[Rfam]
RNA sequence: GGAAAGAUGCAGGAGUGGCUGAACUGGCACGCCUGGAAAGCGUGUGUGCGGGCAACCGUACCGUGGGUUCGAAUCCCACUCUUUCCG
Numbered sequence: 001g002g003a004a005a006g007a008u009g010c011a012g013g014a015g016u017g018g019c020u021g022a023a024c025u026g027g028c029a030c031g032c033c034u035g036g037a038a039a040g041c042g043u044g045u046g047u048g049c050g051g052g053c054a055a056c057c058g059u060a061c062c063g064u065g066g067g068u069u070c071g072a073a074u075c076c077c078a079c080u081c082u083u084u085c086c087g
Stems, first nucleotide, its partner, number of pairs: 001086007010026003028044005063079005
The family of this 87-nucleotide RNA sequence from an Ignavibacteria bacterium is "tRNA". Transfer RNA (tRNA) molecules are approximately 80 nucleotides in length. The base pairs follow the family's consensus structure, which is taken from published work. A search with the family's covariance model found it, with a score of 53 bits. It is annotated as a transfer RNA.